[Rfam]
c-di-GMP-I riboswitch aptamer: a 74-nucleotide RNA from Coriobacteriales bacterium OH1046. About the family: GEMM was predicted in a large-scale screen for bacterial structured RNA regulatory elements. Taxonomically the source falls in Coriobacteriales (Bacteria, Bacillati, Actinomycetota, Coriobacteriia).
RNA sequence: AGCAGUAUCCGGCAAACCCGCCGAAAGGCGGCGACGCAAAGCUACAGGGCCUUUACUGGCAGCCAGCUGCACCG
Dot-bracket structure: ...........((....(((((....)))))....))..((((...(((((......)))..))))))......
Numbered sequence: 001a002g003c004a005g006u007a008u009c010c011g012g013c014a015a016a017c018c019c020g021c022c023g024a025a026a027g028g029c030g031g032c033g034a035c036g037c038a039a040a041g042c043u044a045c046a047g048g049g050c051c052u053u054u055a056c057u058g059g060c061a062g063c064c065a066g067c068u069g070c071a072c073c074g
Stems, first nucleotide, its partner, number of pairs: 012037002018031005040068004047064002049060003